[Rfam]
RNA sequence: UGGGGGAAAUGAUGCCAACAACAUGAGUGACUGAAGCAUCAGCUCUGCUGAAUAUUAAUUUGCACGUCAGUCUGAUCCCAAA
Numbered sequence: 001u002g003g004g005g006g007a008a009a010u011g012a013u014g015c016c017a018a019c020a021a022c023a024u025g026a027g028u029g030a031c032u033g034a035a036g037c038a039u040c041a042g043c044u045c046u047g048c049u050g051a052a053u054a055u056u057a058a059u060u061u062g063c064a065c066g067u068c069a070g071u072c073u074g075a076u077c078c079c080a081a082a
Base pairs, nucleotide, nucleotide: 001082004079005078006077007076

The family of this 82-nucleotide sequence from Juglans regia is "Small nucleolar RNA Z122". The family has 23 seed sequences and 822 matches in Rfam 15.1. Lineage of the source: Eukaryota > Viridiplantae > Embryophyta > eudicotyledons > Juglans. It scores 58 bits against the family's covariance model. The literature on the family includes a 1999 paper in Mol Cell Biol by Qu et al., "Seven novel methylation guide small nucleolar RNAs are processed from a common polycistronic transcript by Rat1p and RNase III in yeast".